[Rfam]
The family of this 77-nucleotide sequence from Merluccius polli is "mir-17 microRNA precursor family".
RNA sequence: ACGGCAGUGUCAAAGUGCUUACAGUGCAGGUAGUCUUACAAUAUCUACUGCAGUGAAGGCACUUUCAGCACUGUUCU
Numbered sequence: 001a002c003g004g005c006a007g008u009g010u011c012a013a014a015g016u017g018c019u020u021a022c023a024g025u026g027c028a029g030g031u032a033g034u035c036u037u038a039c040a041a042u043a044u045c046u047a048c049u050g051c052a053g054u055g056a057a058g059g060c061a062c063u064u065u066c067a068g069c070a071c072u073g074u075u076c077u
Base pairs, nucleotide, nucleotide: 004074005073006072007071009069010068013064014063015062016061017060018059019058020057022055023054025052026051027050029049030048031047032046033045
Gene Ontology terms of the family: miRNA-mediated post-transcriptional gene silencing and RISC complex.
A reference for the family is Lagos-Quintana et al. (2001), "Identification of novel genes coding for small expressed RNAs", Science.
Rfam's curators write: This family represents the microRNA (miRNA) precursor mir-17, family, which includes mir-20, mir-91, and mir-103. miRNAs are transcribed as ~70nt precursors (modelled here) and subsequently processed by the Dicer enzyme to give a ~22nt product. In this case the mature sequence comes from the 3' arm of the precursor. The extents of the hairpin precursors are not generally known and are estimated based on hairpin prediction.